[Rfam]
RNA: Hepatitis C virus stem-loop I
RNA sequence: GACGCGGGUGGCAGCUACCCUCAGGAAGCUUGGGGUGCCACCCCUCA
Numbered sequence: 001g002a003c004g005c006g007g008g009u010g011g012c013a014g015c016u017a018c019c020c021u022c023a024g025g026a027a028g029c030u031u032g033g034g035g036u037g038c039c040a041c042c043c044c045u046c047a
Stems, first nucleotide, its partner, number of pairs: 006042002010039002019035007